[Rfam]
RNA sequence: AUAUACACACACACGUGUGUAUAUACACACACACGUGUGUAUAUACACACACACGUGUGUAUAUACACACACACGUGUGUAUAUACACACACACCGUGUGUAUAUACACACACACACACGUGUGUGUAUAUACACAACACGUGUGUGUAUAUACACACACACGUGUGUAUAUACACACACACGUGUGUGUAUAUACACACACACGUGUGUAUAUACACACACACACGUGUGUAUACACACACACACGUGUGUAUUACACACACACACACACGUGUGUAU
Numbered sequence: 001a002u003a004u005a006c007a008c009a010c011a012c013a014c015g016u017g018u019g020u021a022u023a024u025a026c027a028c029a030c031a032c033a034c035g036u037g038u039g040u041a042u043a044u045a046c047a048c049a050c051a052c053a054c055g056u057g058u059g060u061a062u063a064u065a066c067a068c069a070c071a072c073a074c075g076u077g078u079g080u081a082u083a084u085a086c087a088c089a090c091a092c093a094c095c096g097u098g099u100g101u102a103u104a105u106a107c108a109c110a111c112a113c114a115c116a117c118a119c120g121u122g123u124g125u126g127u128a129u130a131u132a133c134a135c136a137a138c139a140c141g142u143g144u145g146u147g148u149a150u151a152u153a154c155a156c157a158c159a160c161a162c163g164u165g166u167g168u169a170u171a172u173a174c175a176c177a178c179a180c181a182c183g184u185g186u187g188u189g190u191a192u193a194u195a196c197a198c199a200c201a202c203a204c205g206u207g208u209g210u211a212u213a214u215a216c217a218c219a220c221a222c223a224c225a226c227g228u229g230u231g232u233a234u235a236c237a238c239a240c241a242c243a244c245a246c247g248u249g250u251g252u253a254u255u256a257c258a259c260a261c262a263c264a265c266a267c268a269c270a271c272g273u274g275u276g277u278a279u
Stems, first nucleotide, its partner, number of pairs: 003129005011123009024114001029080010042063009082106004134210003139206009155194001157192001159190005164183005216231005242276003246272007254264001255262001
RNA: RNA of unknown function RUF4
Organism: Leptobrachium leishanense